This 66-nucleotide RNA from Pseudoxanthomonas broegbernensis belongs to the Rfam family "Fluoride riboswitch aptamer (crcB RNA motif)". Pairs were carried over by alignment from the consensus structure, which is taken from published work. The match comes from Rfam's covariance-model search (52 bits).
RNA sequence: GCGGUCGACGGAGAUGGCAUUCCUCCGAUAACCGCCGCGCGCGCGGCUGAUGAUGCCUGCGAACCG
Numbered sequence: 001g002c003g004g005u006c007g008a009c010g011g012a013g014a015u016g017g018c019a020u021u022c023c024u025c026c027g028a029u030a031a032c033c034g035c036c037g038c039g040c041g042c043g044c045g046g047c048u049g050a051u052g053a054u055g056c057c058u059g060c061g062a063a064c065c066g
Base pairs, nucleotide, nucleotide: 010026011025012024013023016057017056018055019054020053021052034047035046036045037044